A member of the RNA family "c-di-GMP-I riboswitch aptamer" from Candidatus Accumulibacter sp. SK-11, 98 nucleotides long. Its family is annotated with cyclic-di-GMP binding in the Gene Ontology. GEMM was predicted in a large-scale screen for bacterial structured RNA regulatory elements.

[Rfam]
RNA sequence: CCCUGUCAAUGGCAAACGGAGGGAAACCUCCGGACGCAAAGCCACGGACCCUACCCCGAGUUGCCUCAUCGGCUCGGAAGGGUGGCCGGGUUGCCCGA
Numbered sequence: 001c002c003c004u005g006u007c008a009a010u011g012g013c014a015a016a017c018g019g020a021g022g023g024a025a026a027c028c029u030c031c032g033g034a035c036g037c038a039a040a041g042c043c044a045c046g047g048a049c050c051c052u053a054c055c056c057c058g059a060g061u062u063g064c065c066u067c068a069u070c071g072g073c074u075c076g077g078a079a080g081g082g083u084g085g086c087c088g089g090g091u092u093g094c095c096c097g098a
Stems, first nucleotide, its partner, number of pairs: 012037002017032006040092004045088003048083003055077002058075006